The record is an 84-nucleotide RNA sequence from Thalassomonas actiniarum, which matches "c-di-GMP-I riboswitch aptamer" in Rfam. Taxonomically the source falls in Thalassomonas (Bacteria, Pseudomonadati, Pseudomonadota, Colwelliaceae).
[Rfam]
Nucleotides: 084
Stems, first nucleotide, its partner, number of pairs: 012038002017032006041078004046074003049069003056063002
Number, partner (000 for none) and nucleotide at each position: 001000a002000g003000u004000u005000g006000u007000a008000a009000a010000a011000g012038g013037c014000a015000a016000g017032g018031u019030g020029c021028u022027u023000g024000a025000a026000a027022a028021a029020g030019u031018a032017c033000u034000c035000a036000c037013g038012c039000a040000a041078a042077a043076c044075c045000a046074c047073g048072g049069a050068u051067c052000u053000a054000a055000g056063g057062g058000g059000u060000u061000u062057c063056c064000u065000a066000u067051g068050a069049u070000g071000g072048c073047u074046g075044g076043g077042u078041u079000g080000c081000a082000a083000g084000u

For this family Rfam cites "Identification of 22 candidate structured RNAs in bacteria using the CMfinder comparative genomics pipeline" (Weinberg et al., Nucleic Acids Res, 2007). Pairs were carried over by alignment from the consensus structure, which is taken from published work. About the family: GEMM was predicted in a large-scale screen for bacterial structured RNA regulatory elements.